Notes: The family of this 546-nucleotide part of an RNA from Candidatus Nanobsidianus stetteri is "Archaeal large subunit ribosomal RNA". The base pairs follow the family's consensus structure, which is taken from published work. It scores 2535 bits against the family's covariance model.

RNA sequence: UCAGGAACCCGCCCGGUGGAUGCCUGGGCUCGGAAGCCGAAGAAGGGCGUGGCAAGCUGCGAAAAGCUGGAGGGAGGUGCAUGCAACCGUUGAUCUCCAGAUUCCCGAAUGGGAUAUCCUGCCAAAAGGCAUCCCGUAAGGGAGGGGAACGCGGGGAAGGGAAACAUCUUAGUACCCGCAGGAAUAAAAAACAAUUUGUGAUUUCCUGAGUAGGGGCGACCGAAAGGGAAGGAGCCCAAACUGAAUCCUCUAAAGUAAUUUAGAGGAGAUGUGGGGUAAAGGAACGGGAGCUUCCCGUUAUUAUAUCCUCAGAACUCCGGUGAAAGUCCGGGGCCAUAGAGGGUGACAGCCCCGUAUGGGGAUAUAAUAGUGGGAUUUCCCGUUUCCGGAGUACCGGCGGUUGGAUUUCCGUCGGGAAUUUGGGGGAAACUAGCCCCCAAGGCUAAAUACUCUCCGAGUCCGAUAGCGUAUCAGUAGGGCGACCGAAAGGUGAAAAGAACCCUUGGCAGGGGGUGAAAAGAGCCUGAAACCGGGCGGGGAUUGUCU
Numbered sequence: 001u002c003a004g005g006a007a008c009c010c011g012c013c014c015g016g017u018g019g020a021u022g023c024c025u026g027g028g029c030u031c032g033g034a035a036g037c038c039g040a041a042g043a044a045g046g047g048c049g050u051g052g053c054a055a056g057c058u059g060c061g062a063a064a065a066g067c068u069g070g071a072g073g074g075a076g077g078u079g080c081a082u083g084c085a086a087c088c089g090u091u092g093a094u095c096u097c098c099a100g101a102u103u104c105c106c107g108a109a110u111g112g113g114a115u116a117u118c119c120u121g122c123c124a125a126a127a128g129g130c131a132u133c134c135c136g137u138a139a140g141g142g143a144g145g146g147g148a149a150c151g152c153g154g155g156g157a158a159g160g161g162a163a164a165c166a167u168c169u170u171a172g173u174a175c176c177c178g179c180a181g182g183a184a185u186a187a188a189a190a191a192c193a194a195u196u197u198g199u200g201a202u203u204u205c206c207u208g209a210g211u212a213g214g215g216g217c218g219a220c221c222g223a224a225a226g227g228g229a230a231g232g233a234g235c236c237c238a239a240a241c242u243g244a245a246u247c248c249u250c251u252a253a254a255g256u257a258a259u260u261u262a263g264a265g266g267a268g269a270u271g272u273g274g275g276g277u278a279a280a281g282g283a284a285c286g287g288g289a290g291c292u293u294c295c296c297g298u299u300a301u302u303a304u305a306u307c308c309u310c311a312g313a314a315c316u317c318c319g320g321u322g323a324a325a326g327u328c329c330g331g332g333g334c335c336a337u338a339g340a341g342g343g344u345g346a347c348a349g350c351c352c353c354g355u356a357u358g359g360g361g362a363u364a365u366a367a368u369a370g371u372g373g374g375a376u377u378u379c380c381c382g383u384u385u386c387c388g389g390a391g392u393a394c395c396g397g398c399g400g401u402u403g404g405a406u407u408u409c410c411g412u413c414g415g416g417a418a419u420u421u422g423g424g425g426g427a428a429a430c431u432a433g434c435c436c437c438c439a440a441g442g443c444u445a446a447a448u449a450c451u452c453u454c455c456g457a458g459u460c461c462g463a464u465a466g467c468g469u470a471u472c473a474g475u476a477g478g479g480c481g482a483c484c485g486a487a488a489g490g491u492g493a494a495a496a497g498a499a500c501c502c503u504u505g506g507c508a509g510g511g512g513g514u515g516a517a518a519a520g521a522g523c524c525u526g527a528a529a530c531c532g533g534g535c536g537g538g539g540a541u542u543g544u545c546u
Stems, first nucleotide, its partner, number of pairs: 008538009022524001023490002027461002029458006035451002045106003048061003067100006076088003111120003132143004150181001151179005161168002191199002203230005213221002233444004241274003251262004285382004293375004309359003315332001317331004335339001341353003394415007422438005477484002